Shown here is a 381-nucleotide sequence from Sphingomonas parapaucimobilis, a member of the family "Bacterial RNase P class A". Pairs were carried over by alignment from the consensus structure, which is taken from published work. The match comes from Rfam's covariance-model search (300 bits). Taxonomically the source falls in Sphingomonas parapaucimobilis (Bacteria, Pseudomonadati, Pseudomonadota, Sphingomonadaceae).

[Rfam]
RNA sequence: UCAGAGGGCCGGGCGGCCGCGGCCUCGGGUAACCGGGGGCGAGGAAAGUCCGGGCUCCACGGAAUAACGGUGCCGGGUAACGCCCGGCGGGGGCGACCCCAGGGACAGUGCCACAGAGAGCAGACGGCCACGGCUUCGGCCAGGUCAGGGUGAAAGGGUGCGGUAAAAGCGCACCGCGGGUCCGGUAACGGAAACGGCAUGGCAAACCCCACCGGGAGCAAGACCGAAUAGGGAUGGCAUGGCGCGCAAGCGUCGGGGCGCGUUCCCGCCCGCUAUCCGGGUUGGUUGCUUGAGGCGAUGUGCAAGCAUCGUCCUAGAAGAAUGGUCGCCCAUCCGGCUUUGGCCGGUGGACAGAACCCGGCUUACAGGCCCUCUGGCUUU
Numbered sequence: 001u002c003a004g005a006g007g008g009c010c011g012g013g014c015g016g017c018c019g020c021g022g023c024c025u026c027g028g029g030u031a032a033c034c035g036g037g038g039g040c041g042a043g044g045a046a047a048g049u050c051c052g053g054g055c056u057c058c059a060c061g062g063a064a065u066a067a068c069g070g071u072g073c074c075g076g077g078u079a080a081c082g083c084c085c086g087g088c089g090g091g092g093g094c095g096a097c098c099c100c101a102g103g104g105a106c107a108g109u110g111c112c113a114c115a116g117a118g119a120g121c122a123g124a125c126g127g128c129c130a131c132g133g134c135u136u137c138g139g140c141c142a143g144g145u146c147a148g149g150g151u152g153a154a155a156g157g158g159u160g161c162g163g164u165a166a167a168a169g170c171g172c173a174c175c176g177c178g179g180g181u182c183c184g185g186u187a188a189c190g191g192a193a194a195c196g197g198c199a200u201g202g203c204a205a206a207c208c209c210c211a212c213c214g215g216g217a218g219c220a221a222g223a224c225c226g227a228a229u230a231g232g233g234a235u236g237g238c239a240u241g242g243c244g245c246g247c248a249a250g251c252g253u254c255g256g257g258g259c260g261c262g263u264u265c266c267c268g269c270c271c272g273c274u275a276u277c278c279g280g281g282u283u284g285g286u287u288g289c290u291u292g293a294g295g296c297g298a299u300g301u302g303c304a305a306g307c308a309u310c311g312u313c314c315u316a317g318a319a320g321a322a323u324g325g326u327c328g329c330c331c332a333u334c335c336g337g338c339u340u341u342g343g344c345c346g347g348u349g350g351a352c353a354g355a356a357c358c359c360g361g362c363u364u365a366c367a368g369g370c371c372c373u374c375u376g377g378c379u380u381u
Stems, first nucleotide, its partner, number of pairs: 001377010011366001012330007020041002023038006046364003050361005055218004064264001068214005073087005088102001089100004103209002108207002110203003125149001127145003132141003157175006176198001177196002181192004222287004232278006256271005294313008